Record summary
Shown here is a 207-nucleotide RNA from Oryza meridionalis, a member of the family "MIR812 microRNA precursor family". The family's consensus secondary structure was predicted with RNAalifold. Taxonomically the source falls in Oryza (Eukaryota, Spermatophyta, commelinids, Poales).
RNA sequence: AAAAAGACAAACCCUAAAUUUUCGUGUCCAACGUUUGACCGUUCGUUUUAUUUGAAAAAAAUAUGAAAAAAAUUAAAAAGACAAGUCACGCAUAAAGUAUUAAUCACAUUUUAUCAUUUAACAACAUUGAAAAUACUAAUUAUAAAAAUAAUUCAUAUAAGAUAGAUAAUCAAACGUUGGACACGAAAAUCCAGGGUUUGUUUUUUU
Numbered sequence: 001a002a003a004a005a006g007a008c009a010a011a012c013c014c015u016a017a018a019u020u021u022u023c024g025u026g027u028c029c030a031a032c033g034u035u036u037g038a039c040c041g042u043u044c045g046u047u048u049u050a051u052u053u054g055a056a057a058a059a060a061a062u063a064u065g066a067a068a069a070a071a072a073u074u075a076a077a078a079a080g081a082c083a084a085g086u087c088a089c090g091c092a093u094a095a096a097g098u099a100u101u102a103a104u105c106a107c108a109u110u111u112u113a114u115c116a117u118u119u120a121a122c123a124a125c126a127u128u129g130a131a132a133a134u135a136c137u138a139a140u141u142a143u144a145a146a147a148a149u150a151a152u153u154c155a156u157a158u159a160a161g162a163u164a165g166a167u168a169a170u171c172a173a174a175c176g177u178u179g180g181a182c183a184c185g186a187a188a189a190u191c192c193a194g195g196g197u198u199u200g201u202u203u204u205u206u207u
Base pairs, nucleotide, nucleotide: 027181028180029179030178031177032176034174035173036172037171038170041167042166043165045163046162047161048160049159050158051157
Dot-bracket structure: ..........................((((((.(((((..(((.(((((((.........................................................................................................))))))).)))..))))).))))))..........................